[Rfam]
Nucleotides: 361
Stems, first nucleotide, its partner, number of pairs: 001357007020330008029321001031320001033318003038313003044304005049069005057083005117138006139176006147166002150163004155191005195226003200221003207240006242277002246273006254264001257296004261291003334350005
Number, partner (000 for none) and nucleotide at each position: 001357g002356g003355g004354g005353g006352c007351g008000u009000u010000u011000u012000g013000g014000c015000u016000u017000c018000g019000a020330c021329g022328g023327g024326g025325g026324u027323a028000a029321g030000a031320u032000g033318g034317g035316u036000u037000u038313g039312a040311u041000a042000a043000g044304c045303g046302a047301g048300u049069c050068g051067a052066g053065g054000g055000a056000a057083g058082c059081a060080u061079g062000g063000u064000g065053c066052c067051u068050c069049g070000a071000u072000a073000a074000u075000a076000a077000a078000g079061u080060a081059u082058g083057c084000a085000u086000u087000a088000a089000a090000g091000a092000u093000a094000a095000a096000c097000g098000c099000a100000g101000a102000a103000g104000a105000u106000a107000a108000u109000u110000u111000u112000g113000c114000a115000u116000u117138a118137g119136c120135a121134g122133c123000u124000u125000a126000a127000u128000u129000u130000a131000g132000c133122g134121c135120u136119g137118c138117u139176c140175a141174u142173c143172c144171u145000u146000c147166c148165u149000c150163a151162a152161u153160u154000g155191c156190c157189c158188a159187c160153g161152g162151u163150u164000g165148a166147g167000a168000g169000u170000a171144a172143g173142g174141g175140u176139g177000u178000c179000a180000u181000u182000u183000a184000a185000a186000a187159g188158u189157g190156g191155g192000g193000a194000a195226c196225c197224g198000a199000g200221c201220c202219u203000a204000g205000c206000a207240a208239a209238g210237c211236u212235u213000u214000g215000a216000g217000c218000u219202a220201g221200g222000a223000a224197c225196g226195g227000a228000a229000u230000u231000u232000a233000u234000g235212a236211a237210g238209c239208u240207u241000a242277c243276c244000a245000a246273a247272g248271a249270g250269g251268a252000a253000g254264u255000u256000u257296g258295u259294c260293u261291g262290u263289g264254g265000a266000c267000g268251u269250u270249c271248u272247c273246u274000g275000a276243g277242g278000g279000a280000a281000u282000u283000u284000u285000a286000a287000a288000a289263c290262a291261c292000a293260a294259g295258a296257c297000u298000a299000c300048a301047c302046u303045c304044g305000u306000a307000g308000a309000a310000a311040g312039u313038c314000u315000u316035a317034c318033u319000g320031g321029u322000c323027u324026g325025c326024u327023u328022u329021c330020g331000g332000a333000c334350a335349c336348g337347g338346g339000u340000u341000c342000g343000a344000c345000a346338c347337c348336c349335g350334u351007c352006g353005c354004c355003u356002c357001c358000a359000c360000c361000a
Shown here is a 361-nucleotide RNA sequence from Clostridium perfringens, a member of the family "transfer-messenger RNA". It is annotated as a non-coding RNA gene. Gene Ontology term of the family: RNA catabolic process. The sequence is in the family's curated seed alignment. The family's consensus secondary structure is taken from published work. The organism belongs to Clostridium perfringens, within Bacteria.